[Rfam]
Background
The record is a 269-nucleotide sequence from Papio anubis, which matches "Mason-Pfizer monkey virus packaging signal" in Rfam. On this family, see Mustafa et al., Virus Res 2004: "Mutational analysis of the predicted secondary RNA structure of the Mason-Pfizer monkey virus packaging signal". The family's RNA type in Rfam is cis-regulatory element.

RNA sequence: GGGCUUCCAACAGGACUGGAAACGCAGGGACUCCUCGAGGAAGAGAUGGCAGCGACUCACCGACCGCUAACAAAGACAAAAGGGAAUUCACCGCUGAACCUGCCGCUGGCCUGGAAUCAAGGUAAGUGACGAUCCGAAAUGGGACAAGAAUUAAGUCAACAUCAAAUUUAUGUAGGACAAUUAAAAGAGGCUUUGAAGAUAAUGAGGAGUAAAGGUUAAAGGUAAUGAUUUGUUUAAAUUUUUUGAUUUUGUAAAAGAUACUUGCCCUU
Dot-bracket structure: .....(((..................)))....(.............).........................................(((..((..((...(....)...))...)).))).......(.((((...)))).)......((((((...............................))).))).......((((((((..((((((.......))))))......))))))))........((.(.(....).).))